[Rfam]
RNA sequence: CGCGCCGUCAUUGGGGAGUAGCUGCGUUCUUUUCAAAGAGAACGAGCCGGUGCCAACAUGCUUGCCCGCCAGGGCAUGGUGCCGGUGUCCAGCACCGAUCGCAUCGCAUGCGAUCGGGCCGGAAUGCAAGACCUUUGAUCGCGUCUCAUCCGCGAGGGCCGGGGGAUGGCGCGAUCAUUGCGUUCGUGCCGGCCCCUGGA
Numbered sequence: 001c002g003c004g005c006c007g008u009c010a011u012u013g014g015g016g017a018g019u020a021g022c023u024g025c026g027u028u029c030u031u032u033u034c035a036a037a038g039a040g041a042a043c044g045a046g047c048c049g050g051u052g053c054c055a056a057c058a059u060g061c062u063u064g065c066c067c068g069c070c071a072g073g074g075c076a077u078g079g080u081g082c083c084g085g086u087g088u089c090c091a092g093c094a095c096c097g098a099u100c101g102c103a104u105c106g107c108a109u110g111c112g113a114u115c116g117g118g119c120c121g122g123a124a125u126g127c128a129a130g131a132c133c134u135u136u137g138a139u140c141g142c143g144u145c146u147c148a149u150c151c152g153c154g155a156g157g158g159c160c161g162g163g164g165g166a167u168g169g170c171g172c173g174a175u176c177a178u179u180g181c182g183u184u185c186g187u188g189c190c191g192g193c194c195c196c197u198g199g200a
Stems, first nucleotide, its partner, number of pairs: 025044003046086010063076005088200005
RNA: Manganese Mn2+ riboswitch aptamer (yybP-ykoY)